RNA sequence: UCGCGUGUCGUGCCAACCGGACGUGACAGUGAUGACGAACGCAGGGAUUUCUUGCGGCCAACGAAAACGGCAGUCGCGCGUCCCACCGUCCGGCCC
Numbered sequence: 001u002c003g004c005g006u007g008u009c010g011u012g013c014c015a016a017c018c019g020g021a022c023g024u025g026a027c028a029g030u031g032a033u034g035a036c037g038a039a040c041g042c043a044g045g046g047a048u049u050u051c052u053u054g055c056g057g058c059c060a061a062c063g064a065a066a067a068c069g070g071c072a073g074u075c076g077c078g079c080g081u082c083c084c085a086c087c088g089u090c091c092g093g094c095c096c
Base pairs, nucleotide, nucleotide: 007094008093009092011023012022014020025090026089027088029086030085034082035081036080037079040056041055042054043053044052045051046050057071058070059069
RNA: Rhizobiales sRNA Atu_At1